[Rfam]
RNA sequence: CGCGGCCAAGGUCGCACGCCGGCCGACGAGGUUUCGUCCGCCGGCGCAUUUUGC
Number, nucleotide and partner (000 for none) at each position: 001c000002g000003c000004g000005g000006c000007c000008a000009a000010g000011g000012u000013c000014g000015c000016a000017c046018g045019c044020c043021g042022g041023c040024c000025g000026a037027c036028g035029a034030g000031g000032u000033u000034u029035c028036g027037u026038c000039c000040g023041c022042c021043g020044g019045c018046g017047c000048a000049u000050u000051u000052u000053g000054c000
ffh sRNA: a 54-nucleotide RNA from Sphingomonas oleivorans. By type it is a small RNA. On this family, see Meyer et al., BMC Genomics 2009: "Identification of candidate structured RNAs in the marine organism 'Candidatus Pelagibacter ubique'". A search with the family's covariance model found it, with a score of 37 bits. Pairs were carried over by alignment from the consensus structure, which is taken from published work.